[Rfam]
RNA sequence: CAUUAAGGAUCAACGCUAAGUUCGUGCCAUCCUGCCGCAACGCCUUGUACCCACGUCCUGUGGG
Numbered sequence: 001c002a003u004u005a006a007g008g009a010u011c012a013a014c015g016c017u018a019a020g021u022u023c024g025u026g027c028c029a030u031c032c033u034g035c036c037g038c039a040a041c042g043c044c045u046u047g048u049a050c051c052c053a054c055g056u057c058c059u060g061u062g063g064g
Stems, first nucleotide, its partner, number of pairs: 011047003015043002024038003028034001050064005
Dot-bracket structure: ..........(((.((.......(((.(.....).)))...)).)))..(((((.....)))))